[Rfam]
RNA: tRNA
RNA sequence: GGCCCCGUGGCUCAACUGGAUAGAGCAAUCCCCUCCUAAGGGAUAGGUUGCAGGUUCGAAUCCUGCCGGGGUCA
Numbered sequence: 001g002g003c004c005c006c007g008u009g010g011c012u013c014a015a016c017u018g019g020a021u022a023g024a025g026c027a028a029u030c031c032c033c034u035c036c037u038a039a040g041g042g043a044u045a046g047g048u049u050g051c052a053g054g055u056u057c058g059a060a061u062c063c064u065g066c067c068g069g070g071g072u073c074a
Base pairs, nucleotide, nucleotide: 001073002072003071004070005069006068007067010026011025012024013023028044029043030042031041032040050066051065052064053063054062
Dot-bracket structure: (((((((..((((.........)))).(((((.......))))).....(((((.......)))))))))))).